This 119-nucleotide sequence from Streptococcus pseudopneumoniae belongs to the Rfam family "Streptococcus sRNA SpF14".
Rfam's curators put it in the seed alignment.

[Rfam]
RNA sequence: CAAAAACCAGAAUUUAUAAUAUCGUUUAUAAUGGGCAUGAUUUGGGUUGUCGGUGUAUUCCUUCUAAUCUAUUGGAAUUUUAUAGCAAAUACUAAGAAGAGACAAAAAUAUAUAAAUAU
Numbered sequence: 001c002a003a004a005a006a007c008c009a010g011a012a013u014u015u016a017u018a019a020u021a022u023c024g025u026u027u028a029u030a031a032u033g034g035g036c037a038u039g040a041u042u043u044g045g046g047u048u049g050u051c052g053g054u055g056u057a058u059u060c061c062u063u064c065u066a067a068u069c070u071a072u073u074g075g076a077a078u079u080u081u082a083u084a085g086c087a088a089a090u091a092c093u094a095a096g097a098a099g100a101g102a103c104a105a106a107a108a109u110a111u112a113u114a115a116a117u118a119u
Stems, first nucleotide, its partner, number of pairs: 006113001010109001013106003017102001021050002024047005030042003055092005061085001063084001065082002068076002